[Rfam]
RNA sequence: AGAUGAGAGAAACACAUCGCCCACGGGAAACCGCGGGUGAUUCCGGGUCGGGGCUUCCCCAGCACCGUCCCGGGCGUGCCUUCGUGCACGCCUCCGGAGCCUCUGGCUCCGGUACUCCUCACCGAUCGGA
Numbered sequence: 001a002g003a004u005g006a007g008a009g010a011a012a013c014a015c016a017u018c019g020c021c022c023a024c025g026g027g028a029a030a031c032c033g034c035g036g037g038u039g040a041u042u043c044c045g046g047g048u049c050g051g052g053g054c055u056u057c058c059c060c061a062g063c064a065c066c067g068u069c070c071c072g073g074g075c076g077u078g079c080c081u082u083c084g085u086g087c088a089c090g091c092c093u094c095c096g097g098a099g100c101c102u103c104u105g106g107c108u109c110c111g112g113u114a115c116u117c118c119u120c121a122c123c124g125a126u127c128g129g130a
Base pairs, nucleotide, nucleotide: 004121005120006119007118009117010116017040018039019038020037021036022035024033025032026031042074043073044072045071046070047069049067050066051065053063054062076089077088078087079086094112095111096110097109098108099107100106101105122129123128
RNA: Streptomyces RNA 5676
Organism: Streptomyces sp. ISL-63